Rfam assigns this 78-nucleotide sequence from Nostoc minutum to the family "CyVA-1 RNA". Cyanobacteria, Acidobacteria (1 example), Verrucomicrobia (1 example).
[Rfam]
RNA sequence: UUACUGGAUGGGCGUUGUGCCGCUGUGGCCCAUUGUCGUGUAUUGAAGGAGAGCGACCGUCAUAUACACGGACAGUAA
Numbered sequence: 001u002u003a004c005u006g007g008a009u010g011g012g013c014g015u016u017g018u019g020c021c022g023c024u025g026u027g028g029c030c031c032a033u034u035g036u037c038g039u040g041u042a043u044u045g046a047a048g049g050a051g052a053g054c055g056a057c058c059g060u061c062a063u064a065u066a067c068a069c070g071g072a073c074a075g076u077a078a
Base pairs, nucleotide, nucleotide: 001078002077003076004075005074006073009032010031011030012029037070038069039068040067041066042065043064